A member of the RNA family "Pseudomonas sRNA P27" from Pseudomonas matsuisoli, 195 nucleotides long. The match comes from Rfam's covariance-model search (145 bits). The source organism's lineage runs through Bacteria, Pseudomonadati, Pseudomonadales, Pseudomonadaceae and Pseudomonas. The literature on the family includes a 2006 paper in Nucleic Acids Res by Livny et al., "Identification of 17 Pseudomonas aeruginosa sRNAs and prediction of sRNA-encoding genes in 10 diverse pathogens using the bioinformatic tool sRNAPredict2". Rfam classes the family as a small RNA.
[Rfam]
RNA sequence: CGGGUUUACUCCUGGUUUUACCGUAACGCCGAGCCGAAGCUCGGCGGCGUUUUGGUGUCUGAUUCGGUACGAAUCGGGAGCACCAUCUGCGUAGGCUCGUGGUCAAACCACGGUUUGAGGCAAUGCCGCCUACGGUCUUGGAUAGCCCCCGCCAGGCAGGGACCCCAAUUUGGCAGGCCUGAACAGGUUCAAGCC
Numbered sequence: 001c002g003g004g005u006u007u008a009c010u011c012c013u014g015g016u017u018u019u020a021c022c023g024u025a026a027c028g029c030c031g032a033g034c035c036g037a038a039g040c041u042c043g044g045c046g047g048c049g050u051u052u053u054g055g056u057g058u059c060u061g062a063u064u065c066g067g068u069a070c071g072a073a074u075c076g077g078g079a080g081c082a083c084c085a086u087c088u089g090c091g092u093a094g095g096c097u098c099g100u101g102g103u104c105a106a107a108c109c110a111c112g113g114u115u116u117g118a119g120g121c122a123a124u125g126c127c128g129c130c131u132a133c134g135g136u137c138u139u140g141g142a143u144a145g146c147c148c149c150c151g152c153c154a155g156g157c158a159g160g161g162a163c164c165c166c167a168a169u170u171u172g173g174c175a176g177g178c179c180u181g182a183a184c185a186g187g188u189u190c191a192a193g194c195c
Base pairs, nucleotide, nucleotide: 002165003164004163005162006161007160011156012155013154014153022049023048027046028045029044030043031042032041033040034039053085054084055083056082057081058080059077060076061075062074063073064072065071089152090151091150094147095146096145097144113143114142115141116140117139118138119137120136121135177194178193180191181190182189